[Rfam]
RNA: Flavo-1 RNA
RNA sequence: CCCUAGCCCAGAUAGAAGCGGUAUCCUUUUCUUUUUUCUUUUUAAAAAAGAAAAGAUAUAGCGGAUAGCUGGAAAUAGC
Numbered sequence: 001c002c003c004u005a006g007c008c009c010a011g012a013u014a015g016a017a018g019c020g021g022u023a024u025c026c027u028u029u030u031c032u033u034u035u036u037u038c039u040u041u042u043u044a045a046a047a048a049a050g051a052a053a054a055g056a057u058a059u060a061g062c063g064g065a066u067a068g069c070u071g072g073a074a075a076u077a078g079c
Base pairs, nucleotide, nucleotide: 009071010070011069013067014066018062019061023057024056025055029052030051031050032049033048034047035046036045